The family of this 56-nucleotide sequence from Musa balbisiana is "Plastid-psbA-3 3UTR RNA". By type it is a cis-regulatory element. The family's consensus secondary structure was predicted with LocARNA. Plastid psbA-3 is a non-coding RNA (ncRNA) present in plastids. It was identified in inverted repeat sequences in the 3 prime untranslate region (3UTR) of photosystem II quinone-binding protein (psbA). For this family Rfam cites "Retrograde signaling in plants: A critical review focusing on the GUN pathway and beyond" (Richter et al., Plant Commun, 2023). Lineage of the source: Eukaryota > Embryophyta > Spermatophyta > Musaceae > Musa. Its Rfam clan is "Plastid-psbA 3UTR RNA clan".
[Rfam]
RNA sequence: AAAGUAGCAAUACCCCUGUCUUGUCUUAGCAAGACAGGGGGAUUGCUACUUGUUUG
Numbered sequence: 001a002a003a004g005u006a007g008c009a010a011u012a013c014c015c016c017u018g019u020c021u022u023g024u025c026u027u028a029g030c031a032a033g034a035c036a037g038g039g040g041g042a043u044u045g046c047u048a049c050u051u052g053u054u055u056g
Base pairs, nucleotide, nucleotide: 002051003050004049005048006047007046008045009044010043011042013040014039018035019034020033021032022031023030